Rfam assigns this 293-nucleotide RNA sequence from Homarus americanus to the family "Nuclear RNase P". For this family Rfam cites "Ribonuclease P: unity and diversity in a tRNA processing ribozyme" (Frank and Pace, Annu Rev Biochem, 1998). Taxonomically the source falls in Homarus (Eukaryota, Eumetazoa, Eumalacostraca, Decapoda). Ribonuclease P (RNase P) is a ubiquitous endoribonuclease, found in archaea, bacteria and eukarya as well as chloroplasts and mitochondria. A search with the family's covariance model found it, with a score of 124 bits.
RNA sequence: GGCAGCACAAGCUUGCUCUAAGGGUUAGCACAGGAUUAUUGUUUCCCGUCACCCCUGGGAAGGUCUGAGAGAAGGGACAGUAAUGCUCCAGGCGGGCAACCUUCGAGAGGAGGGGCAGAACACCAGAAAUCCUUAGGUACCCUGACUGAGGGCAAGUCUAGGACAUGUGUUAAGGUCUAACAGUUGGAGACAAUCUCUCGGUCUUGGUUGGAAGGAUCUUGUGUCCAGCUUAGUUGAGUGUGAUGAGCAAGGUGACUUUGGUCAUAACUCAAUUCAGACUAGUCUGUGCUGCU
Numbered sequence: 001g002g003c004a005g006c007a008c009a010a011g012c013u014u015g016c017u018c019u020a021a022g023g024g025u026u027a028g029c030a031c032a033g034g035a036u037u038a039u040u041g042u043u044u045c046c047c048g049u050c051a052c053c054c055c056u057g058g059g060a061a062g063g064u065c066u067g068a069g070a071g072a073a074g075g076g077a078c079a080g081u082a083a084u085g086c087u088c089c090a091g092g093c094g095g096g097c098a099a100c101c102u103u104c105g106a107g108a109g110g111a112g113g114g115g116c117a118g119a120a121c122a123c124c125a126g127a128a129a130u131c132c133u134u135a136g137g138u139a140c141c142c143u144g145a146c147u148g149a150g151g152g153c154a155a156g157u158c159u160a161g162g163a164c165a166u167g168u169g170u171u172a173a174g175g176u177c178u179a180a181c182a183g184u185u186g187g188a189g190a191c192a193a194u195c196u197c198u199c200g201g202u203c204u205u206g207g208u209u210g211g212a213a214g215g216a217u218c219u220u221g222u223g224u225c226c227a228g229c230u231u232a233g234u235u236g237a238g239u240g241u242g243a244u245g246a247g248c249a250a251g252g253u254g255a256c257u258u259u260g261g262u263c264a265u266a267a268c269u270c271a272a273u274u275c276a277g278a279c280u281a282g283u284c285u286g287u288g289c290u291g292c293u
Stems, first nucleotide, its partner, number of pairs: 001293004007287003012251007020056001022054003065277005075226004084098005100113005115222004120217001131207002252265005